[Rfam]
This 196-nucleotide sequence from Bacillus smithii belongs to the Rfam family "6S / SsrS RNA". The literature on the family includes a 2005 paper in Nat Struct Mol Biol by Trotochaud and Wassarman, "A highly conserved 6S RNA structure is required for regulation of transcription". Lineage of the source: Bacteria > Bacillota > Bacilli > Bacillaceae > Bacillus smithii.
Nucleotides: 196
Stems, first nucleotide, its partner, number of pairs: 002194010012183004017179003033161004038156003041152002059136003063132004068127001073125007085113002090109005
Number, partner (000 for none) and nucleotide at each position: 001000c002194g003193a004192g005191u006190c007189c008188u009187g010186a011185u012183g013182u014181g015180u016000a017179c018178g019177u020000u021000a022000g023000u024000a025000a026000c027000c028000u029000a030000u031000u032000c033161u034160g035159u036158u037000u038156u039155g040154a041152c042151c043000g044000a045000a046000c047000a048000c049000u050000u051000a052000g053000a054000u055000u056000u057000a058000c059136g060135g061134g062000a063132g064131c065130c066129u067000g068127g069000a070000g071000u072000u073125u074124u075123u076122a077121a078120g079119u080000a081000g082000c083000g084000u085113a086112a087000a088000u089000g090109c091108c092107u093106c094105u095000u096000u097000c098000u099000c100000u101000g102000g103000a104000u105094g106093g107092a108091g109090g110000a111000c112086u113085u114000g115000c116000a117000a118000a119079g120078c121077u122076u123075a124074a125073a126000a127068c128000a129066g130065g131064g132063c133000a134061c135060c136059c137000a138000c139000c140000u141000g142000c143000c144000g145000a146000g147000a148000g149000c150000g151042g152041g153000u154040u155039c156038a157000a158036a159035a160034c161033g162000u163000a164000u165000a166000g167000a168000u169000c170000u171000u172000u173000g174000a175000c176000a177019a178018c179017g180015g181014c182013a183012c184000g185011a186010u187009u188008g189007g190006g191005a192004c193003u194002c195000g196000u
From the family's description: E. coli 6S RNA was the first non coding RNA to be sequenced, but its function was unknown until recently. It consists of 184 nucleotides that fold into an extended hairpin structure with a large single-stranded internal bulge.